[Rfam]
RNA sequence: CCAGCUCUCUUUGCCGUAAGGCUAAGAUCAAGUGUAGUAUCUGUUCUUUUCAGUUUAAUCUCUGAAAGUAUUCUAAGGAAUACAACAUUGAUUAAUCUCAUUUUUGGAUCUCGCGUUCGGCCCGCUGUGCUUGCGCAUGGUCGUCCGCACCGUGUCCUCGGUCUUACACUACCACCGAGCGAUGCGAAAUGCA
Numbered sequence: 001c002c003a004g005c006u007c008u009c010u011u012u013g014c015c016g017u018a019a020g021g022c023u024a025a026g027a028u029c030a031a032g033u034g035u036a037g038u039a040u041c042u043g044u045u046c047u048u049u050u051c052a053g054u055u056u057a058a059u060c061u062c063u064g065a066a067a068g069u070a071u072u073c074u075a076a077g078g079a080a081u082a083c084a085a086c087a088u089u090g091a092u093u094a095a096u097c098u099c100a101u102u103u104u105u106g107g108a109u110c111u112c113g114c115g116u117u118c119g120g121c122c123c124g125c126u127g128u129g130c131u132u133g134c135g136c137a138u139g140g141u142c143g144u145c146c147g148c149a150c151c152g153u154g155u156c157c158u159c160g161g162u163c164u165u166a167c168a169c170u171a172c173c174a175c176c177g178a179g180c181g182a183u184g185c186g187a188a189a190u191g192c193a
Base pairs, nucleotide, nucleotide: 008027009026010025013022014021015020048067049066050065051064052063053062068083069082070081071080072079073078113148114147115146118143119142120141126137127136128135129134151186152185153184154183155182156181157179158178159177160176161175162174

This 193-nucleotide RNA from Histoplasma mississippiense belongs to the Rfam family "U2 spliceosomal RNA". Pairs were carried over by alignment from the consensus structure, which is taken from published work. The sequence is in the family's curated seed alignment. By type it is a spliceosomal small nuclear RNA.